[Rfam]
RNA sequence: CUGAUUUUUUCUUUGGUUAUCUAGCUGUAUGAGUAAAACUGACGUCAUAAAGCUAGGUUACCGAAGUUAAGAACAG
Numbered sequence: 001c002u003g004a005u006u007u008u009u010u011c012u013u014u015g016g017u018u019a020u021c022u023a024g025c026u027g028u029a030u031g032a033g034u035a036a037a038a039c040u041g042a043c044g045u046c047a048u049a050a051a052g053c054u055a056g057g058u059u060a061c062c063g064a065a066g067u068u069a070a071g072a073a074c075a076g
Stems, first nucleotide, its partner, number of pairs: 001076003005072001007070002011066007019058008028049005
Dot-bracket structure: (((.(.((..(((((((.((((((((.(((((............))))).)))))))).)))))))..)).).)))
Rfam assigns this 76-nucleotide RNA from Coptotermes formosanus to the family "mir-9/mir-79 microRNA precursor family".